[Rfam]
The family of this 74-nucleotide RNA from Bacillus subtilis is "tRNA". Taxonomically the source falls in Bacillus (Bacteria, Bacillota, Bacilli, Caryophanales). Rfam links the family to the GO term triplet codon-amino acid adaptor activity.
RNA sequence: GGCGGUGUAGCUCAGCUGGCUAGAGCGUACGGUUCAUACCCGUGAGGUCGGGGGUUCGAUCCCCUCCGCCGCUA
Numbered sequence: 001g002g003c004g005g006u007g008u009a010g011c012u013c014a015g016c017u018g019g020c021u022a023g024a025g026c027g028u029a030c031g032g033u034u035c036a037u038a039c040c041c042g043u044g045a046g047g048u049c050g051g052g053g054g055u056u057c058g059a060u061c062c063c064c065u066c067c068g069c070c071g072c073u074a
Base pairs, nucleotide, nucleotide: 001073002072003071004070005069006068007067010026011025012024013023028044029043030042031041032040050066051065052064053063054062